Small nucleolar RNA SNORD121A: a 78-nucleotide sequence from Chaetura pelagica. The match comes from Rfam's covariance-model search (52 bits). Gene Ontology terms of the family: RNA processing and nucleolus. The family has 26 seed sequences and 881 matches in Rfam 15.1. Lineage of the source: Eukaryota > Deuterostomia > Teleostomi > Dipnotetrapodomorpha > Chaetura. On this family, see Yang et al., Nucleic Acids Res 2006: "snoSeeker: an advanced computational package for screening of guide and orphan snoRNA genes in the human genome". Rfam classes the family as a C/D-box small nucleolar RNA.
[Rfam]
RNA sequence: GUCCAAAAUACAGUGAUUUUCCACACACAUAUCUGAUUGCUCUAUGUGGAAGAUUACUGUUGUUGAGUGAUUUUGGAU
Numbered sequence: 001g002u003c004c005a006a007a008a009u010a011c012a013g014u015g016a017u018u019u020u021c022c023a024c025a026c027a028c029a030u031a032u033c034u035g036a037u038u039g040c041u042c043u044a045u046g047u048g049g050a051a052g053a054u055u056a057c058u059g060u061u062g063u064u065g066a067g068u069g070a071u072u073u074u075g076g077a078u
Base pairs, nucleotide, nucleotide: 001078002077003076004075005074006073008071009070010068011067